RNA sequence: AAAUAUGUUUUUUGAGUGUCUAAUGAUGAAUUUCAUAGGGCAGAUUCUGAGGUGAAAAUCAAAUUCACCAAUGAUACUCCUACUAUGGAAUCUGAAGACACUUGAAAAACU
Number, nucleotide and partner (000 for none) at each position: 001a000002a000003a000004u000005a000006u000007g000008u000009u000010u000011u000012u000013u104014g103015a102016g101017u100018g099019u098020c097021u096022a000023a000024u000025g000026a000027u000028g000029a000030a091031u090032u089033u088034c087035a086036u085037a081038g080039g079040g078041c000042a000043g075044a000045u000046u074047c073048u000049g000050a000051g069052g068053u067054g066055a065056a064057a000058a000059u000060c000061a000062a000063a000064u056065u055066c054067a053068c052069c051070a000071a000072u000073g047074a046075u043076a000077c000078u040079c039080c038081u037082a000083c000084u000085a036086u035087g034088g033089a032090a031091u030092c000093u000094g000095a000096a021097g020098a019099c018100a017101c016102u015103u014104g013105a000106a000107a000108a000109a000110c000111u000
Source information
Shown here is a 111-nucleotide RNA sequence from Molossus molossus, a member of the family "Small nucleolar RNA SNORD90". A search with the family's covariance model found it, with a score of 124 bits. It is annotated as a C/D-box small nucleolar RNA. About the family: snoRNA HBII-295 belongs to the family of C/D snoRNAs. It is the human orthologue of the mouse MBII-295 and has no identified RNA target. The source organism's lineage runs through Eukaryota, Bilateria, Teleostomi, Eutheria and Molossus. The literature on the family includes a 2001 paper in EMBO J by Huttenhofer et al., "RNomics: an experimental approach that identifies 201 candidates for novel, small, non-messenger RNAs in mouse".